[Rfam]
RNA: ylbH leader
RNA sequence: ACUUAAAUAAACCCUUAUACAAUAAGGGUUUUAGGUAUCAGUACCAUUAAAUUAUUACGACGGCCCUUUUACAGGCCGUCUCAUGGGAGAGGAGAAACCGGACGAAGAGCUUAUGGGGAAACGUAAGCCUUCUCCGCGG
Number, nucleotide and partner (000 for none) at each position: 001a000002c000003u000004u000005a000006a000007a000008u000009a000010a030011a029012c028013c027014c026015u025016u024017a023018u022019a000020c000021a000022a018023u017024a016025a015026g014027g013028g012029u011030u010031u086032u085033a084034g000035g000036u000037a000038u000039c000040a000041g000042u000043a000044c000045c000046a000047u000048u000049a000050a000051a000052u000053u000054a000055u000056u000057a000058c000059g000060a000061c000062g000063g000064c000065c000066c000067u000068u000069u000070u000071a000072c000073a000074g000075g000076c000077c000078g000079u000080c000081u000082c000083a000084u033085g032086g031087g000088a000089g000090a000091g000092g000093a000094g000095a000096a000097a000098c000099c136100g135101g134102a133103c000104g132105a131106a130107g129108a000109g128110c127111u126112u125113a124114u000115g000116g000117g000118g000119a000120a000121a000122c000123g000124u113125a112126a111127g110128c109129c107130u106131u105132c104133u102134c101135c100136g099137c000138g000139g000